The record is a 97-nucleotide RNA from Citrus unshiu, which matches "Small nucleolar RNA snoR31/Z110/Z27" in Rfam. This family contains several related snoRNAs including R31, Z27 and Z110. The source organism's lineage runs through Eukaryota, Viridiplantae, Embryophyta, Gunneridae and Citrus. Gene Ontology terms of the family: RNA processing and nucleolus. For this family Rfam cites "The high diversity of snoRNAs in plants: identification and comparative study of 120 snoRNA genes from Oryza sativa" (Chen et al., Nucleic Acids Res, 2003).
[Rfam]
RNA sequence: GUCAUCAUGUGAUGAAAUGAGGAAAAAUCUUAGGACACCUUCCUACACGGCAUUCAUUUGCUGUGGAUGAGAAGAAAGUUUCCAUUCUGAUGGUGAU
Numbered sequence: 001g002u003c004a005u006c007a008u009g010u011g012a013u014g015a016a017a018u019g020a021g022g023a024a025a026a027a028u029c030u031u032a033g034g035a036c037a038c039c040u041u042c043c044u045a046c047a048c049g050g051c052a053u054u055c056a057u058u059u060g061c062u063g064u065g066g067a068u069g070a071g072a073a074g075a076a077a078g079u080u081u082c083c084a085u086u087c088u089g090a091u092g093g094u095g096a097u
Stems, first nucleotide, its partner, number of pairs: 001097007043049001